The family of this 55-nucleotide RNA sequence from Oscillatoriaceae cyanobacterium M7585_C2015_266 is "Nitrogen stress-induced RNA 1". The match comes from Rfam's covariance-model search (46 bits). The pairing is the family consensus, mapped onto this sequence. Rfam classes the family as a small RNA. Rfam 15.1 lists 962 matches to the family in 163 species.

RNA sequence: AGAUAGAUGCACCCUGAUUGACAUACCCUCGGCCUACUUGCUGAGGGAUUUUUUU
Numbered sequence: 001a002g003a004u005a006g007a008u009g010c011a012c013c014c015u016g017a018u019u020g021a022c023a024u025a026c027c028c029u030c031g032g033c034c035u036a037c038u039u040g041c042u043g044a045g046g047g048a049u050u051u052u053u054u055u
Base pairs, nucleotide, nucleotide: 002013004011026047027046028045029044030043031042032041033040